[Rfam]
RNA sequence: CCCGCAGGACGACCUGCGGAUGAUCUUUUCCAGCGGGACGACCCG
Numbered sequence: 001c002c003c004g005c006a007g008g009a010c011g012a013c014c015u016g017c018g019g020a021u022g023a024u025c026u027u028u029u030c031c032a033g034c035g036g037g038a039c040g041a042c043c044c045g
Base pairs, nucleotide, nucleotide: 002019003018004017005016006015007014008013034045035044036043037042
Shown here is a 45-nucleotide sequence from Pseudoxanthomonas spadix, a member of the family "Guanidine-II riboswitch aptamer (mini-ykkC)". The family's consensus secondary structure is taken from published work. Lineage of the source: Bacteria > Pseudomonadota > Lysobacterales > Lysobacteraceae > Pseudoxanthomonas spadix. It scores 44 bits against the family's covariance model.